[Rfam]
RNA sequence: UGCCUGUGAUGAGAAAUGAGUAAGAGUAGUGGACAGAAGUGAUUUCUGACAUCCUAAAUUUGAGGCA
Number, nucleotide and partner (000 for none) at each position: 001u067002g066003c065004c064005u000006g000007u000008g000009a000010u000011g000012a000013g000014a000015a000016a000017u000018g000019a000020g000021u000022a000023a000024g000025a000026g000027u000028a000029g000030u000031g000032g000033a000034c000035a000036g000037a000038a000039g000040u000041g000042a000043u000044u000045u000046c000047u000048g000049a000050c000051a000052u000053c000054c000055u000056a000057a000058a000059u000060u000061u000062g000063a000064g004065g003066c002067a001
Shown here is a 67-nucleotide RNA sequence from Bagarius yarrelli, a member of the family "Small nucleolar RNA SNORD75". Pairs were carried over by alignment from the consensus structure, which was predicted with RNAalifold. The family has 5 seed sequences and 767 matches in Rfam 15.1. Its family is annotated with nucleolus and RNA processing in the Gene Ontology. The match comes from Rfam's covariance-model search (61 bits). It is annotated as a C/D-box small nucleolar RNA.